A member of the RNA family "Glycine riboswitch aptamer" from Firmicutes bacterium CAG:95, 93 nucleotides long. The base pairs follow the family's consensus structure. Taxonomically the source falls in Bacillota (Bacteria, Bacillati).
[Rfam]
RNA sequence: UACCAACACUCUGGAGAGUCCCUGAUGAAGGGCGCCGAAGGUGUACGGCAGGAAGCCUGCCAAUCUCUCAGGCAAAAGGACAGAGCAUUCUAU
Numbered sequence: 001u002a003c004c005a006a007c008a009c010u011c012u013g014g015a016g017a018g019u020c021c022c023u024g025a026u027g028a029a030g031g032g033c034g035c036c037g038a039a040g041g042u043g044u045a046c047g048g049c050a051g052g053a054a055g056c057c058u059g060c061c062a063a064u065c066u067c068u069c070a071g072g073c074a075a076a077a078g079g080a081c082a083g084a085g086c087a088u089u090c091u092a093u
Base pairs, nucleotide, nucleotide: 006088009085010084011083012082013081020032021031022030023029034073035072036071037069038068041067043065048060049059